Overview: Rfam assigns this 106-nucleotide sequence from Niallia circulans to the family "azaaromatic riboswitch aptamer (yjdF RNA)".
[Rfam]
RNA sequence: AUUUUGGAAUGAAAAAACACAAUUCGGUUGGUAGUCCGAAUGCAUUAAAAAAUUUAAUGUCAGUAGCCUUCCCCUCCUCGGGAUGUCCAUCGUUCUAGUAUAACUG
Number, nucleotide and partner (000 for none) at each position: 001a000002u000003u000004u098005u097006g096007g095008a094009a093010u092011g091012a000013a000014a000015a000016a000017a000018c000019a000020c000021a000022a041023u040024u039025c038026g037027g036028u000029u000030g000031g000032u000033a000034g000035u000036c027037c026038g025039a024040a023041u022042g060043c059044a058045u057046u056047a055048a054049a053050a000051a000052a000053u049054u048055u047056a046057a045058u044059g043060u042061c000062a000063g000064u000065a000066g000067c000068c000069u000070u083071c082072c081073c080074c000075u000076c000077c000078u000079c000080g073081g072082g071083a070084u000085g000086u000087c000088c000089a000090u000091c011092g010093u009094u008095c007096u006097a005098g004099u000100a000101u000102a000103a000104c000105u000106g000